About this RNA:
This 35-nucleotide RNA sequence from Myotis lucifugus belongs to the Rfam family "Iron response element I". By type it is a cis-regulatory element. Rfam 15.1 lists 6,829 matches to the family in 599 species. The organism belongs to Myotis, within Eukaryota. For this family Rfam cites "Identification of the iron-responsive element for the translational regulation of human ferritin mRNA" (Hentze et al., Science, 1987).

[Rfam]
RNA sequence: CCAUCUCUUGCUUCAACACUGUUUGGACAGAACAG
Numbered sequence: 001c002c003a004u005c006u007c008u009u010g011c012u013u014c015a016a017c018a019c020u021g022u023u024u025g026g027a028c029a030g031a032a033c034a035g
Base pairs, nucleotide, nucleotide: 001035004032006031007030008029010028012027013026014025015024016023017021